RNA sequence: UUGUGUGUGAGGAGCAAGUGAUAAACAGAAAGCGUUUGGGGUGGAAACACGGCAACACUCCCAAACGCUUUUUGUA
Numbered sequence: 001u002u003g004u005g006u007g008u009g010a011g012g013a014g015c016a017a018g019u020g021a022u023a024a025a026c027a028g029a030a031a032g033c034g035u036u037u038g039g040g041g042u043g044g045a046a047a048c049a050c051g052g053c054a055a056c057a058c059u060c061c062c063a064a065a066c067g068c069u070u071u072u073u074g075u076a
Stems, first nucleotide, its partner, number of pairs: 029071005036064005041058003
About this RNA:
Cyano-1 RNA: a 76-nucleotide RNA from Rivularia sp. PCC 7116. Pairs were carried over by alignment from the consensus structure, which is taken from published work. The match comes from Rfam's covariance-model search (58 bits). Rfam 15.1 lists 283 matches to the family in 194 species.